RNA sequence: GCCGGGCUUAGCAACGCAAGCCUAUGACCCAAGUGGGGGCAUUACGGUGAUGGGACUUGGGUACGGCCCAAAGAGCAGGGCCCGAUGUUGCUAAUUACUGGCCUGCCCUAUCCAAGCAAGGAGUUGGGUCACGGAACCCAAGCGAAUGCCCGGGUUUCGUGGGCCUUAGAGUAGAGGGCAACGCGUUAGGCUGGUUUCACAGAGCAGUGCUCUCAGCGGUGGAAGGUUAACGGGCUGGUGCAACUAUGGCCCAAUAAACGUUCCGAUUGGUUGAACUCUAUCGGACCAUCACUUUA
Numbered sequence: 001g002c003c004g005g006g007c008u009u010a011g012c013a014a015c016g017c018a019a020g021c022c023u024a025u026g027a028c029c030c031a032a033g034u035g036g037g038g039g040c041a042u043u044a045c046g047g048u049g050a051u052g053g054g055a056c057u058u059g060g061g062u063a064c065g066g067c068c069c070a071a072a073g074a075g076c077a078g079g080g081c082c083c084g085a086u087g088u089u090g091c092u093a094a095u096u097a098c099u100g101g102c103c104u105g106c107c108c109u110a111u112c113c114a115a116g117c118a119a120g121g122a123g124u125u126g127g128g129u130c131a132c133g134g135a136a137c138c139c140a141a142g143c144g145a146a147u148g149c150c151c152g153g154g155u156u157u158c159g160u161g162g163g164c165c166u167u168a169g170a171g172u173a174g175a176g177g178g179c180a181a182c183g184c185g186u187u188a189g190g191c192u193g194g195u196u197u198c199a200c201a202g203a204g205c206a207g208u209g210c211u212c213u214c215a216g217c218g219g220u221g222g223a224a225g226g227u228u229a230a231c232g233g234g235c236u237g238g239u240g241c242a243a244c245u246a247u248g249g250c251c252c253a254a255u256a257a258a259c260g261u262u263c264c265g266a267u268u269g270g271u272u273g274a275a276c277u278c279u280a281u282c283g284g285a286c287c288a289u290c291a292c293u294u295u296a
Base pairs, nucleotide, nucleotide: 001040002039003038004023005022006021007020008019009018028037029036030035043296044295046293047292048291049290050289051288052287053286056283058280059279060278061276062275064273065272066271068270069269070268071267073263074262075261076260078252079251080250081249082248085245087244088243089242090241092240093239098238099237100236101235102234103233104232105231107226108225111223112222113221114220116217117216126165127164129162130161131160132159133158134157135156136155137154138153139152142149143148166171178213183210184209185208186207191202192201193200
Background:
This 296-nucleotide RNA from Rhododendron simsii belongs to the Rfam family "Plant signal recognition particle RNA". A search with the family's covariance model found it, with a score of 182 bits. The source organism's lineage runs through Eukaryota, Euphyllophyta, Gunneridae, Ericoideae and Rhododendron. By type it is a non-coding RNA gene.